[Rfam]
A member of the RNA family "mir-128 microRNA precursor family" from Ictalurus punctatus, 59 nucleotides long. Rfam's curators put it in the seed alignment. The family has 57 seed sequences and 1,337 matches in Rfam 15.1. Lineage of the source: Eukaryota > Vertebrata > Teleostei > Ostariophysi > Ictalurus.

RNA sequence: GGGGGCCGUUUCUACUGUCAGAGAUGCUGCCACUCGUCUCACAGUGAACCGGUCUCUUU
Numbered sequence: 001g002g003g004g005g006c007c008g009u010u011u012c013u014a015c016u017g018u019c020a021g022a023g024a025u026g027c028u029g030c031c032a033c034u035c036g037u038c039u040c041a042c043a044g045u046g047a048a049c050c051g052g053u054c055u056c057u058u059u
Stems, first nucleotide, its partner, number of pairs: 002056007012046001014045005021040003